[Rfam]
RNA sequence: UGCCAUUGCUAAGUCAAGGCUUCUUCCAGCGACUACGUGUCGUGCUUUUUCCCAUGGGAGUCUGUCUGUUACAGCUUUGGUAGAUUGAUGCUGGCCCGCGCCAACCUUCUUUCUGAAGCGAGGCUGAUUGGUUUUCGUUUUGAAAGCCUAUCGUAAGGGCCGAGCUGUGCUCCGUUUUUGAGUUGAGGCCUGCUACUGCCAUCUGGCUAUUUCAUAGCAGGUCUCUUAGUAACGUUACACACAUUC
Numbered sequence: 001u002g003c004c005a006u007u008g009c010u011a012a013g014u015c016a017a018g019g020c021u022u023c024u025u026c027c028a029g030c031g032a033c034u035a036c037g038u039g040u041c042g043u044g045c046u047u048u049u050u051c052c053c054a055u056g057g058g059a060g061u062c063u064g065u066c067u068g069u070u071a072c073a074g075c076u077u078u079g080g081u082a083g084a085u086u087g088a089u090g091c092u093g094g095c096c097c098g099c100g101c102c103a104a105c106c107u108u109c110u111u112u113c114u115g116a117a118g119c120g121a122g123g124c125u126g127a128u129u130g131g132u133u134u135u136c137g138u139u140u141u142g143a144a145a146g147c148c149u150a151u152c153g154u155a156a157g158g159g160c161c162g163a164g165c166u167g168u169g170c171u172c173c174g175u176u177u178u179u180g181a182g183u184u185g186a187g188g189c190c191u192g193c194u195a196c197u198g199c200c201a202u203c204u205g206g207c208u209a210u211u212u213c214a215u216a217g218c219a220g221g222u223c224u225c226u227u228a229g230u231a232a233c234g235u236u237a238c239a240c241a242c243a244u245u246c
Stems, first nucleotide, its partner, number of pairs: 003080003017067004023060005029043005091162001094160004100124003106118004126152002131147007167240003173234003185225004191219004197209001198207003

Description:
This 246-nucleotide sequence from Aspergillus coremiiformis belongs to the Rfam family "Small nucleolar RNA snR191". The family's consensus secondary structure was predicted with WAR.